[Rfam]
RNA sequence: CCAUUUCACCCUCCACUCGGAUCGUCCGGCACGUUCCUGCCGGUGAAGGGGAGUAUCA
Numbered sequence: 001c002c003a004u005u006u007c008a009c010c011c012u013c014c015a016c017u018c019g020g021a022u023c024g025u026c027c028g029g030c031a032c033g034u035u036c037c038u039g040c041c042g043g044u045g046a047a048g049g050g051g052a053g054u055a056u057c058a
Stems, first nucleotide, its partner, number of pairs: 009050004014045002026043006
RNA: msiK RNA
Organism: Yinghuangia soli